The family of this 250-nucleotide RNA from Apium graveolens is "RNase MRP". Lineage of the source: Eukaryota > Viridiplantae > Embryophyta > Mesangiospermae > Apium. RNase MRP is an enzymatically active ribonucleoprotein with two distinct roles in eukaryotes.

RNA sequence: UGACCACAAGAUGACGUGAUUGGGCUUUCGGCAAAUUUAUUUGUCCGGCCCAGGAAAGUCCCCGGGCCCUUAUCCGCAGAGAUGCGGGCUUGGAAACAAGUUCAACUUGAUGAUGAAAUCCUAAACCUUUAUGUUUGGGCUGAGACGAGGUGGAGCCUUUAGAUUUCUCACAAGUCAAAUUGGCCGAUUACACAGUCAUUCACGUGGUCCAUUAACGGAUUAACUGAACGGGGCUUACACUCUUGUGGUC
Numbered sequence: 001u002g003a004c005c006a007c008a009a010g011a012u013g014a015c016g017u018g019a020u021u022g023g024g025c026u027u028u029c030g031g032c033a034a035a036u037u038u039a040u041u042u043g044u045c046c047g048g049c050c051c052a053g054g055a056a057a058g059u060c061c062c063c064g065g066g067c068c069c070u071u072a073u074c075c076g077c078a079g080a081g082a083u084g085c086g087g088g089c090u091u092g093g094a095a096a097c098a099a100g101u102u103c104a105a106c107u108u109g110a111u112g113a114u115g116a117a118a119u120c121c122u123a124a125a126c127c128u129u130u131a132u133g134u135u136u137g138g139g140c141u142g143a144g145a146c147g148a149g150g151u152g153g154a155g156c157c158u159u160u161a162g163a164u165u166u167c168u169c170a171c172a173a174g175u176c177a178a179a180u181u182g183g184c185c186g187a188u189u190a191c192a193c194a195g196u197c198a199u200u201c202a203c204g205u206g207g208u209c210c211a212u213u214a215a216c217g218g219a220u221u222a223a224c225u226g227a228a229c230g231g232g233g234c235u236u237a238c239a240c241u242c243u244u245g246u247g248g249u250c
Base pairs, nucleotide, nucleotide: 002250003249004248005247006246007245008244009243010242011241014205015204016203017202018201019200022051023050024049025048030045031044032043033042034041035040056236057235058234060233061232062231063230075086076085077084078083087102088101089100090099091098092097105175106174115167116166125164127162128161137158138157139156140155147151207220208219209218210217